[Rfam]
RNA sequence: AACGGCAUCCCCCGGCGCCCACCUCCCUGGGUCGCCAAUCGGAAUCGAACCUCUCCCCUGGGCUUCGAUUCCACCGGCCCCGAGGACUCCCCCUAAGUUCUCGGGGCUUUUUC
Numbered sequence: 001a002a003c004g005g006c007a008u009c010c011c012c013c014g015g016c017g018c019c020c021a022c023c024u025c026c027c028u029g030g031g032u033c034g035c036c037a038a039u040c041g042g043a044a045u046c047g048a049a050c051c052u053c054u055c056c057c058c059u060g061g062g063c064u065u066c067g068a069u070u071c072c073a074c075c076g077g078c079c080c081c082g083a084g085g086a087c088u089c090c091c092c093c094u095a096a097g098u099u100c101u102c103g104g105g106g107c108u109u110u111u112u113c
Stems, first nucleotide, its partner, number of pairs: 004013002014036003017032004041072009051062002076108008085099004

Rfam assigns this 113-nucleotide RNA sequence from Dyella dinghuensis to the family "Xanthomonadaceae sRNA sX13". A search with the family's covariance model found it, with a score of 50 bits. Taxonomically the source falls in Dyella (Bacteria, Pseudomonadota, Lysobacterales, Rhodanobacteraceae). On this family, see Schmidtke et al., Nucleic Acids Res 2011: "Genome-wide transcriptome analysis of the plant pathogen Xanthomonas identifies sRNAs with putative virulence functions".